The record is a 183-nucleotide RNA from Sporosarcina sp. Marseille-Q4063, which matches "6S / SsrS RNA" in Rfam. From the family's description: E. coli 6S RNA was the first non coding RNA to be sequenced, but its function was unknown until recently. It consists of 184 nucleotides that fold into an extended hairpin structure with a large single-stranded internal bulge. The 6S RNA specifically associates with RNA polymerase holoenzyme containing the sigma70 specificity factor. For this family Rfam cites "6S RNA regulates E. coli RNA polymerase activity" (Wassarman and Storz, Cell, 2000).
[Rfam]
RNA sequence: CGAAUCCUGAAGUGUUCGUUAUUUGACCUUUAAGUUUUGACCGAACAUUUCUAUCGUAGGGAGUUCACAUUCCAAUUCGGAUGACACGCCUCUCAGGGGACGUCAAAACAGUUGGAUAGGACACCCACCUGCCGAGUGCGGGCUCAAAACGAUAUCUUCAAAGACGGCAUAUUUGGGAUUCGU
Number, nucleotide and partner (000 for none) at each position: 001c000002g181003a180004a179005u178006c177007c176008u175009g174010a173011a172012g170013u169014g168015u167016u000017c166018g165019u164020u000021a000022u000023u000024u000025g000026a000027c000028c000029u000030u000031u000032a000033a000034g150035u149036u148037u000038u146039g145040a144041c142042c141043g000044a000045a000046c000047a000048u000049u000050u000051c000052u000053a000054u000055c000056g000057u000058a000059g126060g125061g124062a000063g122064u121065u120066c119067a000068c000069a000070u116071u000072c115073c114074a113075a112076u111077u110078c000079g000080g000081a000082u000083g000084a103085c102086a000087c000088g000089c099090c098091u097092c096093u000094c000095a000096g092097g091098g090099g089100a000101c000102g085103u084104c000105a000106a000107a000108a000109c000110a077111g076112u075113u074114g073115g072116a070117u000118a000119g066120g065121a064122c063123a000124c061125c060126c059127a000128c000129c000130u000131g000132c000133c000134g000135a000136g000137u000138g000139c000140g000141g042142g041143c000144u040145c039146a038147a000148a036149a035150c034151g000152a000153u000154a000155u000156c000157u000158u000159c000160a000161a000162a000163g000164a019165c018166g017167g015168c014169a013170u012171a000172u011173u010174u009175g008176g007177g006178a005179u004180u003181c002182g000183u000